Source information: Small nucleolar RNA SNORA5: a 129-nucleotide RNA sequence from Spizaetus tyrannus. Rfam's curators write: ACA5 is a member of the H/ACA class of snoRNA that guide the sites of modification of uridines to pseudouridines.
RNA sequence: CACAGCCUCGUGAAAUUCGGUGCCCGCCUCUGCCGUGGUGGGGACCGGCCCAAGGGCUGCCACGGCGAUGUCUCUGCUCCACGUCCCUGCCGUGGGACAUCGGGGGAUCAAAAUAGGUUACGGACACUC
Numbered sequence: 001c002a003c004a005g006c007c008u009c010g011u012g013a014a015a016u017u018c019g020g021u022g023c024c025c026g027c028c029u030c031u032g033c034c035g036u037g038g039u040g041g042g043g044a045c046c047g048g049c050c051c052a053a054g055g056g057c058u059g060c061c062a063c064g065g066c067g068a069u070g071u072c073u074c075u076g077c078u079c080c081a082c083g084u085c086c087c088u089g090c091c092g093u094g095g096g097a098c099a100u101c102g103g104g105g106g107a108u109c110a111a112a113a114u115a116g117g118u119u120a121c122g123g124a125c126a127c128u129c
Stems, first nucleotide, its partner, number of pairs: 003059003018047004023042006075120002077117002084106003088103001